[Rfam]
RNA sequence: UUAACUUAAAUACUAAAUCACACACGUAUCGACACAUUUUUCGGGGUGCUCUGAUAGUUUAACCACAUUCAUUAAUGGUUAAUUACAGGGUCGAAUGAUGGGAUGCGUGGAGGUCUAAC
Number, nucleotide and partner (000 for none) at each position: 001u000002u000003a000004a000005c000006u000007u000008a000009a000010a000011u000012a000013c000014u000015a000016a000017a000018u000019c000020a000021c000022a000023c109024a108025c107026g106027u105028a104029u103030c102031g000032a000033c000034a000035c100036a099037u098038u097039u000040u095041u094042c093043g092044g000045g000046g000047u000048g091049c090050u089051c088052u087053g000054a000055u000056a000057g000058u000059u000060u000061a000062a000063c000064c000065a000066c000067a000068u000069u000070c000071a000072u000073u000074a000075a000076u000077g000078g000079u000080u000081a000082a000083u000084u000085a000086c000087a052088g051089g050090g049091u048092c043093g042094a041095a040096u000097g038098a037099u036100g035101g000102g030103a029104u028105g027106c026107g025108u024109g023110g000111a000112g000113g000114u000115c000116u000117a000118a000119c000

t44 RNA: a 119-nucleotide sequence from Shewanella aestuarii. Rfam describes the family as follows. This family consists of a number of bacterial RNA genes of between 135 and 170 bases in length. A search with the family's covariance model found it, with a score of 79 bits. The family's RNA type in Rfam is small RNA.